[Rfam]
RNA sequence: GGCGGUGAGCACGGGAGCCCGGGUGCCGGGCUGAGAGGGGGCGUUGGCCCCGACCGUCGAACCUGAUCCGGGUCAUGCCGGCGCAGGGAGCGUGGAGUGUCUGAAG
Numbered sequence: 001g002g003c004g005g006u007g008a009g010c011a012c013g014g015g016a017g018c019c020c021g022g023g024u025g026c027c028g029g030g031c032u033g034a035g036a037g038g039g040g041g042c043g044u045u046g047g048c049c050c051c052g053a054c055c056g057u058c059g060a061a062c063c064u065g066a067u068c069c070g071g072g073u074c075a076u077g078c079c080g081g082c083g084c085a086g087g088g089a090g091c092g093u094g095g096a097g098u099g100u101c102u103g104a105a106g
Stems, first nucleotide, its partner, number of pairs: 006094002009091002011057004017031005038051005062087004068081004
RNA: TPP riboswitch aptamer (THI element)